[Rfam]
RNA: RAGATH-25 RNA
RNA sequence: GGCAACACGAACGGUCGUUCGGUCAAUGAGUAAGUCCCCCAUUUCAGGGGA
Numbered sequence: 001g002g003c004a005a006c007a008c009g010a011a012c013g014g015u016c017g018u019u020c021g022g023u024c025a026a027u028g029a030g031u032a033a034g035u036c037c038c039c040c041a042u043u044u045c046a047g048g049g050g051a
Stems, first nucleotide, its partner, number of pairs: 008021005037050004